Rfam assigns this 102-nucleotide RNA from Williamsia sterculiae to the family "mraW RNA". By type it is a cis-regulatory element. Rfam 15.1 lists 851 matches to the family in 821 species. It scores 74 bits against the family's covariance model. Lineage of the source: Bacteria > Actinomycetes > Mycobacteriales > Nocardiaceae > Williamsia.
RNA sequence: AUCCCACGGUGAGCCGAGGCCUCUGCCCGAUCCGACCCUGACGCACUUCCCCAGCGCCAGGUUCGCGAUCGGGCGGAGACCCCGGUUCAUCACCACCCUCGG
Numbered sequence: 001a002u003c004c005c006a007c008g009g010u011g012a013g014c015c016g017a018g019g020c021c022u023c024u025g026c027c028c029g030a031u032c033c034g035a036c037c038c039u040g041a042c043g044c045a046c047u048u049c050c051c052c053a054g055c056g057c058c059a060g061g062u063u064c065g066c067g068a069u070c071g072g073g074c075g076g077a078g079a080c081c082c083c084g085g086u087u088c089a090u091c092a093c094c095a096c097c098c099u100c101g102g
Base pairs, nucleotide, nucleotide: 010089011088012087013086014085015084016083018081019080021078022077023076024075025074026073027072028071029070030069031068032067033065034064035063037061038060039059040058042056043055044054